The family of this 109-nucleotide sequence from Weissella kandleri is "THF (Tetrahydrofolate) riboswitch aptamer". The match comes from Rfam's covariance-model search (53 bits). Rfam's curators write: Tetrahydrofolate (THF) riboswitch was first reported for Ames et al. as an RNA motif in 5' untranslated (5'-UTR)regions of folate transport and biosynthesis genes in Firmicutes genomes.

[Rfam]
RNA sequence: CGCAGGGUAGAAUUCGAUGCGUAUAGGUCUCUAAAAACGGAAUGUGAGUUAGAGAAGAAAAAUUAAACUUUUGAGUUUAAUUUGCGAUGUCGGGUUCGCAUUCACUGUA
Dot-bracket structure: .((((....(((((((((((((......((((((.....[[[[[....)))))).....(((((((((......)))))))))))).)))))))))).]]]]].)))).